[Rfam]
RNA sequence: UUGAAUAACAACGGGAGCUUGGGAGUUGCCAGGCUGAGAGGACAGCCGAUUGCUGUCGACCGUAAAACCUGAUCUGGGUAAUGCCAGCGGAGGAAAAGUCCUAGCCUUUGUGU
Numbered sequence: 001u002u003g004a005a006u007a008a009c010a011a012c013g014g015g016a017g018c019u020u021g022g023g024a025g026u027u028g029c030c031a032g033g034c035u036g037a038g039a040g041g042a043c044a045g046c047c048g049a050u051u052g053c054u055g056u057c058g059a060c061c062g063u064a065a066a067a068c069c070u071g072a073u074c075u076g077g078g079u080a081a082u083g084c085c086a087g088c089g090g091a092g093g094a095a096a097a098g099u100c101c102u103a104g105c106c107u108u109u110g111u112g113u
Base pairs, nucleotide, nucleotide: 008099009098011063012062013061014060017034018033019032020031021030041057042056043055044054045053068093069092070091074087075086076085077084
The family of this 113-nucleotide RNA from Paenibacillus naphthalenovorans is "TPP riboswitch aptamer (THI element)".
From the family's description: Vitamin B(1) in its active form thiamin pyrophosphate (TPP) is an essential coenzyme that is synthesised by coupling of pyrimidine and thiazole moieties in bacteria.
Lineage of the source: Bacteria > Bacillota > Bacilli > Paenibacillaceae > Paenibacillus.